[Rfam]
RNA: FMN riboswitch aptamer (RFN element)
RNA sequence: GUUAUCCUUCGGGGCGGGGCGCAAUUCCCCACCGGCGGUGUUGAGAUCAAGUUUGUAUAGGUCUCUAAGUCCGUGACCCGGCUAUGUGUUGUAUAAUCAUAGACGGUGGAUCUGGUGAGAAUCCGGAGCCGACAGUAUAGUCUGGAUGGGAGAGGGAUACA
Numbered sequence: 001g002u003u004a005u006c007c008u009u010c011g012g013g014g015c016g017g018g019g020c021g022c023a024a025u026u027c028c029c030c031a032c033c034g035g036c037g038g039u040g041u042u043g044a045g046a047u048c049a050a051g052u053u054u055g056u057a058u059a060g061g062u063c064u065c066u067a068a069g070u071c072c073g074u075g076a077c078c079c080g081g082c083u084a085u086g087u088g089u090u091g092u093a094u095a096a097u098c099a100u101a102g103a104c105g106g107u108g109g110a111u112c113u114g115g116u117g118a119g120a121a122u123c124c125g126g127a128g129c130c131g132a133c134a135g136u137a138u139a140g141u142c143u144g145g146a147u148g149g150g151a152g153a154g155g156g157a158u159a160c161a
Base pairs, nucleotide, nucleotide: 003159004158005157006156007155008154009153010152017029018028019027031141032140033131034130035074036073037072038071069129070128078106079105111127112126113125114124115123133144134143135142